[Rfam]
RNA: Bacterial RNase P class A
Organism: Micavibrio aeruginosavorus
RNA sequence: CCAGAGGGUCGGAUGGCCGCGCCUGUCGCAAGAUGGGUGAGGAAAGUCCGGGCUUCACGGAAACACGGUGCCGGGUAACACCCGGGCGGGGCGACCCGACGGACAGUGCAACAGAAAACAAACCGCCGAUGGAUCUUUCGGGAUCACAGGUAAGGGCGAAACGGUGCGGUAAGAGCGCACCGCGGACCUGGUAACAGGGACGGCAUGGCAAACCCCACCGGACGCAAGACCGAAUAGGGGCCGCAUAUGGUGCGUUUCCGCAUCGCGGCCCGGGUUGGUUGCUUGAGGUGCGUGGUAACACGCAUCCCAGAUGAAUGGCCAUCAUCCAUCUUCGGAUGGAUACAGAACCCGGCUUACAGACGCUCUGGUUUU
Numbered sequence: 001c002c003a004g005a006g007g008g009u010c011g012g013a014u015g016g017c018c019g020c021g022c023c024u025g026u027c028g029c030a031a032g033a034u035g036g037g038u039g040a041g042g043a044a045a046g047u048c049c050g051g052g053c054u055u056c057a058c059g060g061a062a063a064c065a066c067g068g069u070g071c072c073g074g075g076u077a078a079c080a081c082c083c084g085g086g087c088g089g090g091g092c093g094a095c096c097c098g099a100c101g102g103a104c105a106g107u108g109c110a111a112c113a114g115a116a117a118a119c120a121a122a123c124c125g126c127c128g129a130u131g132g133a134u135c136u137u138u139c140g141g142g143a144u145c146a147c148a149g150g151u152a153a154g155g156g157c158g159a160a161a162c163g164g165u166g167c168g169g170u171a172a173g174a175g176c177g178c179a180c181c182g183c184g185g186a187c188c189u190g191g192u193a194a195c196a197g198g199g200a201c202g203g204c205a206u207g208g209c210a211a212a213c214c215c216c217a218c219c220g221g222a223c224g225c226a227a228g229a230c231c232g233a234a235u236a237g238g239g240g241c242c243g244c245a246u247a248u249g250g251u252g253c254g255u256u257u258c259c260g261c262a263u264c265g266c267g268g269c270c271c272g273g274g275u276u277g278g279u280u281g282c283u284u285g286a287g288g289u290g291c292g293u294g295g296u297a298a299c300a301c302g303c304a305u306c307c308c309a310g311a312u313g314a315a316u317g318g319c320c321a322u323c324a325u326c327c328a329u330c331u332u333c334g335g336a337u338g339g340a341u342a343c344a345g346a347a348c349c350c351g352g353c354u355u356a357c358a359g360a361c362g363c364u365c366u367g368g369u370u371u372u
Stems, first nucleotide, its partner, number of pairs: 001368006008361003011357001012323007020039008044355003048352005053224001055222002062257002066220005071085005086100001087098004101215002106213002108209002123155002125151003132145005163181006182204001183202002187198004228280004238271006249264005287306008